[Rfam]
RNA: Glutamine riboswitch aptamer (glnA leader)
RNA sequence: AUCGUUCAAUCUGCAGAAGCAGAUCGGAAGUAGGUAUUAACCGAAGGAACGCGGA
Number, nucleotide and partner (000 for none) at each position: 001a000002u000003c051004g050005u049006u048007c047008a000009a024010u023011c022012u021013g020014c000015a000016g000017a000018a000019g000020c013021a012022g011023a010024u009025c000026g000027g052028a000029a000030g000031u000032a000033g042034g041035u040036a000037u000038u000039a000040a035041c034042c033043g000044a000045a000046g000047g007048a006049a005050c004051g003052c027053g000054g000055a000